[Rfam]
RNA: Lysine riboswitch aptamer
Organism: Sebaldella termitidis
RNA sequence: AGGUUUUAUAGAGGUAGCGGUGAGAAUUAGUAAUAUGCAGAGCUGGCAGGCUGGGAAGCAUAUGAAAGGUAACCAUCGCCGAACAUUAUAUGAAGGCAUGAGUAUAAUGUGGGGGCAGAGAUAACAUCUUUGUCACUCAUCCAUUGGAUGGCACUAUUAAACAA
Numbered sequence: 001a002g003g004u005u006u007u008a009u010a011g012a013g014g015u016a017g018c019g020g021u022g023a024g025a026a027u028u029a030g031u032a033a034u035a036u037g038c039a040g041a042g043c044u045g046g047c048a049g050g051c052u053g054g055g056a057a058g059c060a061u062a063u064g065a066a067a068g069g070u071a072a073c074c075a076u077c078g079c080c081g082a083a084c085a086u087u088a089u090a091u092g093a094a095g096g097c098a099u100g101a102g103u104a105u106a107a108u109g110u111g112g113g114g115g116c117a118g119a120g121a122u123a124a125c126a127u128c129u130u131u132g133u134c135a136c137u138c139a140u141c142c143a144u145u146g147g148a149u150g151g152c153a154c155u156a157u158u159a160a161a162c163a164a
Base pairs, nucleotide, nucleotide: 006159008157009156010155011154017079018078019077020076021075022074025070033063034062035061036060037059038058083110084109085108086107087106088105089104090103091102094099111137112136114134115133116132117131118130119129120128121127139149140148141147142146